About this RNA:
Shown here is a 57-nucleotide sequence from Gulo gulo, a member of the family "mir-7883 microRNA precursor family". Pairs were carried over by alignment from the consensus structure, which was predicted with RNAalifold. NCBI's taxonomy places the organism under Eukaryota, Chordata, Caniformia, Guloninae, Gulo. Gene Ontology terms of the family: RISC complex and miRNA-mediated post-transcriptional gene silencing.
RNA sequence: UUUUUGCUUCACGUUGAUACUUGUAAUGAUAAUACAAGUAUCAACGUGAAGCAAAAA
Number, nucleotide and partner (000 for none) at each position: 001u057002u056003u055004u054005u053006g052007c051008u050009u000010c048011a047012c046013g045014u000015u043016g042017a041018u040019a039020c038021u037022u036023g035024u000025a000026a000027u000028g000029a000030u000031a000032a000033u000034a000035c023036a022037a021038g020039u019040a018041u017042c016043a015044a000045c013046g012047u011048g010049a000050a008051g007052c006053a005054a004055a003056a002057a001